[Rfam]
RNA sequence: UUUCAGCAAUGAUGCGGAAGGUUGCGGAUACACCCGGCCCCUUUGCCAUGGCUAGUGUAUGCGGAUAUUUUCGUGGAGCAAGUCUAUUUAUAAAAAUGGGCGA
Dot-bracket structure: .............(((.((((...((.((((((.....................)))))).))....)))))))........((..((((......)))).))